The record is a 104-nucleotide RNA from Brevundimonas basaltis, which matches "Cauldobacter sRNA CC3552" in Rfam. Lineage of the source: Bacteria > Pseudomonadati > Pseudomonadota > Caulobacterales > Brevundimonas. The match comes from Rfam's covariance-model search (100 bits). Pairs were carried over by alignment from the consensus structure, which was predicted with RNAalifold.
RNA sequence: GGAGGCGGCGACGCCCCCCCGACUUGAGACUGGCGAAAGCCGGUCUGUCGCCUCCGCGCCUCAUUCUCGAUGAUGCCACUUCGGCGGACCGUUCACGGUCCGCC
Numbered sequence: 001g002g003a004g005g006c007g008g009c010g011a012c013g014c015c016c017c018c019c020c021g022a023c024u025u026g027a028g029a030c031u032g033g034c035g036a037a038a039g040c041c042g043g044u045c046u047g048u049c050g051c052c053u054c055c056g057c058g059c060c061u062c063a064u065u066c067u068c069g070a071u072g073a074u075g076c077c078a079c080u081u082c083g084g085c086g087g088a089c090c091g092u093u094c095a096c097g098g099u100c101c102g103c104c
Stems, first nucleotide, its partner, number of pairs: 001055010012021002028045007083104009